[Rfam]
RNA: Bacterial large subunit ribosomal RNA, nucleotides 682 to 912
RNA sequence: GAGUUAGCGGCAUGUCGCGAGGUUAACCCGUGUGGGGUAGCCGUAGCGAAAGCGAGUCCGAAUAGGGCGUUUGUAGUGGCAUGUUCUAGACCCGAAGCGGAGUGAUCUACCCAUGGCCAGGGUGAAGCGACGGUAAGACGUCGUGGAGGCCCGAACCCACUUAGGUUGAAAACUGAGGGGAUGAGCUGUGGGUAGGGGUGAAAGGCCAAUCAAACUCCGUGAUAGCUGGUU
Numbered sequence: 001g002a003g004u005u006a007g008c009g010g011c012a013u014g015u016c017g018c019g020a021g022g023u024u025a026a027c028c029c030g031u032g033u034g035g036g037g038u039a040g041c042c043g044u045a046g047c048g049a050a051a052g053c054g055a056g057u058c059c060g061a062a063u064a065g066g067g068c069g070u071u072u073g074u075a076g077u078g079g080c081a082u083g084u085u086c087u088a089g090a091c092c093c094g095a096a097g098c099g100g101a102g103u104g105a106u107c108u109a110c111c112c113a114u115g116g117c118c119a120g121g122g123u124g125a126a127g128c129g130a131c132g133g134u135a136a137g138a139c140g141u142c143g144u145g146g147a148g149g150c151c152c153g154a155a156c157c158c159a160c161u162u163a164g165g166u167u168g169a170a171a172a173c174u175g176a177g178g179g180g181a182u183g184a185g186c187u188g189u190g191g192g193u194a195g196g197g198g199u200g201a202a203a204g205g206c207c208a209a210u211c212a213a214a215c216u217c218c219g220u221g222a223u224a225g226c227u228g229g230u231u
Stems, first nucleotide, its partner, number of pairs: 005088003009085010021042004027036003046053002056068004091229002094226001098219006107195011118183001120152004127144006156180003160177005197207003